The family of this 133-nucleotide RNA sequence from Eolophus roseicapilla is "Small nucleolar RNA SNORA77". Gene Ontology terms of the family: nucleolus and RNA processing. Lineage of the source: Eukaryota > Bilateria > Archosauria > Neognathae > Eolophus. Rfam classes the family as an H/ACA-box small nucleolar RNA. ACA63 (SNORA77) is a member of the H/ACA class of snoRNAs that guide the sites of modification of uridines to pseudouridines. This snoRNA was identified by computational screening and its expression in mouse experimentally verified by Northern blot and primer extension analysis. ACA63 is proposed to guide the pseudouridylation of 18S rRNA U814.

[Rfam]
RNA sequence: GCAGACUCACUCUGUACUGAACUGCGGUCUUCAGUUCAGGUGCUUUUUCUGUCUGCGAGAGUAAUAGUUCACAGGAGUGACGAUUGCCUUCUUUCUCAUAGAAGGCUGUUACAGUUGCUGUUGGGACAUUGCC
Numbered sequence: 001g002c003a004g005a006c007u008c009a010c011u012c013u014g015u016a017c018u019g020a021a022c023u024g025c026g027g028u029c030u031u032c033a034g035u036u037c038a039g040g041u042g043c044u045u046u047u048u049c050u051g052u053c054u055g056c057g058a059g060a061g062u063a064a065u066a067g068u069u070c071a072c073a074g075g076a077g078u079g080a081c082g083a084u085u086g087c088c089u090u091c092u093u094u095c096u097c098a099u100a101g102a103a104g105g106c107u108g109u110u111a112c113a114g115u116u117g118c119u120g121u122u123g124g125g126a127c128a129u130u131g132c133c
Stems, first nucleotide, its partner, number of pairs: 001056006014043004018038003022034003068124002071121004076115001078113002085108002088105002

Notes
Pairs were carried over by alignment from the consensus structure, which was predicted with RNAalifold. The literature on the family includes a 2006 paper in RNA by Schattner et al., "A computational screen for mammalian pseudouridylation guide H/ACA RNAs".